[Rfam]
RNA sequence: AGUGGAAGCUGCAGAGUCAUUCAUGUAGACAAAUGAGAGAAUGUCUUUUGUCUGCAGAAGGCAGCAGUCCUACAUGAACAUGGAGGUCUCUCUCUGACUUAGGACAGCUGGCUAAGUCUGAUCGUUCCCCUCCAUACAAC
Numbered sequence: 001a002g003u004g005g006a007a008g009c010u011g012c013a014g015a016g017u018c019a020u021u022c023a024u025g026u027a028g029a030c031a032a033a034u035g036a037g038a039g040a041a042u043g044u045c046u047u048u049u050g051u052c053u054g055c056a057g058a059a060g061g062c063a064g065c066a067g068u069c070c071u072a073c074a075u076g077a078a079c080a081u082g083g084a085g086g087u088c089u090c091u092c093u094c095u096g097a098c099u100u101a102g103g104a105c106a107g108c109u110g111g112c113u114a115a116g117u118c119u120g121a122u123c124g125u126u127c128c129c130c131u132c133c134a135u136a137c138a139a140c
Stems, first nucleotide, its partner, number of pairs: 004070003008065005024056007035047003082133005090124001093121002096118007